[Rfam]
RNA: Bacterial large subunit ribosomal RNA, nucleotides 1159 to 1595
RNA sequence: AUUCAGGAAUCAGAGUUCAGGAAUUAGGUAUCAGAAUGGCGGUGCAUCGGUUUGAAGAUUUGGAGGUAUUCAAGCGGGCCUACAAGGUUUCGUUGGAGAUUCACCAAAUCAGUCUGGCGAUGCCGCAGGUUGAGCAGUUUGGGCUGGCCGAGCAGAUGCGUCGGGCCAGCAAGUCGAUCUGUGCCAAUCUGGCGGAGGGCUUUGGUAAGCAAAGUCUGUCGAAAACUGAAUUCAAGAGGUUCAUCAAGAUGGGUAUCGGGUCGGCCGACGAAAUGCGAGUUUGGCUGCGAUACUGUCUGGACCUGGGAUAUCUAGAUCAGAUUGAUUGGCAGUGUCUACGCGACGAGUACGAAGAGGUGGCGAAGAUGCUGCAGGGUCUCGCGCGCGGCGUGGCCUGAUCUGAUCCCUGAUCCCUGACCUCUGAUUCCUGAGUGGUA
Numbered sequence: 001a002u003u004c005a006g007g008a009a010u011c012a013g014a015g016u017u018c019a020g021g022a023a024u025u026a027g028g029u030a031u032c033a034g035a036a037u038g039g040c041g042g043u044g045c046a047u048c049g050g051u052u053u054g055a056a057g058a059u060u061u062g063g064a065g066g067u068a069u070u071c072a073a074g075c076g077g078g079c080c081u082a083c084a085a086g087g088u089u090u091c092g093u094u095g096g097a098g099a100u101u102c103a104c105c106a107a108a109u110c111a112g113u114c115u116g117g118c119g120a121u122g123c124c125g126c127a128g129g130u131u132g133a134g135c136a137g138u139u140u141g142g143g144c145u146g147g148c149c150g151a152g153c154a155g156a157u158g159c160g161u162c163g164g165g166c167c168a169g170c171a172a173g174u175c176g177a178u179c180u181g182u183g184c185c186a187a188u189c190u191g192g193c194g195g196a197g198g199g200c201u202u203u204g205g206u207a208a209g210c211a212a213a214g215u216c217u218g219u220c221g222a223a224a225a226c227u228g229a230a231u232u233c234a235a236g237a238g239g240u241u242c243a244u245c246a247a248g249a250u251g252g253g254u255a256u257c258g259g260g261u262c263g264g265c266c267g268a269c270g271a272a273a274u275g276c277g278a279g280u281u282u283g284g285c286u287g288c289g290a291u292a293c294u295g296u297c298u299g300g301a302c303c304u305g306g307g308a309u310a311u312c313u314a315g316a317u318c319a320g321a322u323u324g325a326u327u328g329g330c331a332g333u334g335u336c337u338a339c340g341c342g343a344c345g346a347g348u349a350c351g352a353a354g355a356g357g358u359g360g361c362g363a364a365g366a367u368g369c370u371g372c373a374g375g376g377u378c379u380c381g382c383g384c385g386c387g388g389c390g391u392g393g394c395c396u397g398a399u400c401u402g403a404u405c406c407c408u409g410a411u412c413c414c415u416g417a418c419c420u421c422u423g424a425u426u427c428c429u430g431a432g433u434g435g436u437a
Stems, first nucleotide, its partner, number of pairs: 001433015